[Rfam]
The record is a 299-nucleotide RNA from Mycetocola zhujimingii, which matches "5' ureB small RNA" in Rfam. The base pairs follow the family's consensus structure, which was predicted with mfold.
RNA sequence: CCGCCUCCGCCUGCUGGGGCGAAAUGAAGUGCACGUGGGUGUCGAUUCCACCCGCCGUUGCGAUGAAGUGUUCGCCGGCGAGCAACUCGGUGCCGGGGCCGACGACGAGUCGAGGGUCGACGCCGCUCUGGAGGUGCGGGUUGCCGGCCUUGCCGAUUCCGACGAUCCUGCCGUCGCGCACGCCGAUGUCGCCCUUGAUGACGCCGAGGAUCGGGUCGAGGAUGAUCGCGUUCGUGAUCACCAGGUCGAGAACGCCCUGCGCGUCAGUGGCCUGCGGGUCGGCAGCCAUUCCGUCGCGG
Numbered sequence: 001c002c003g004c005c006u007c008c009g010c011c012u013g014c015u016g017g018g019g020c021g022a023a024a025u026g027a028a029g030u031g032c033a034c035g036u037g038g039g040u041g042u043c044g045a046u047u048c049c050a051c052c053c054g055c056c057g058u059u060g061c062g063a064u065g066a067a068g069u070g071u072u073c074g075c076c077g078g079c080g081a082g083c084a085a086c087u088c089g090g091u092g093c094c095g096g097g098g099c100c101g102a103c104g105a106c107g108a109g110u111c112g113a114g115g116g117u118c119g120a121c122g123c124c125g126c127u128c129u130g131g132a133g134g135u136g137c138g139g140g141u142u143g144c145c146g147g148c149c150u151u152g153c154c155g156a157u158u159c160c161g162a163c164g165a166u167c168c169u170g171c172c173g174u175c176g177c178g179c180a181c182g183c184c185g186a187u188g189u190c191g192c193c194c195u196u197g198a199u200g201a202c203g204c205c206g207a208g209g210a211u212c213g214g215g216u217c218g219a220g221g222a223u224g225a226u227c228g229c230g231u232u233c234g235u236g237a238u239c240a241c242c243a244g245g246u247c248g249a250g251a252a253c254g255c256c257c258u259g260c261g262c263g264u265c266a267g268u269g270g271c272c273u274g275c276g277g278g279u280c281g282g283c284a285g286c287c288a289u290u291c292c293g294u295c296g297c298g299g
Stems, first nucleotide, its partner, number of pairs: 001299003005296001008293002012164002015161003018076006031052001035049001037048004057069003077154002081150002090144003094140001098135002103131001107128004112123001170283004177276004182271001183269001191229002195225002205218002232266001234264001239259002244256002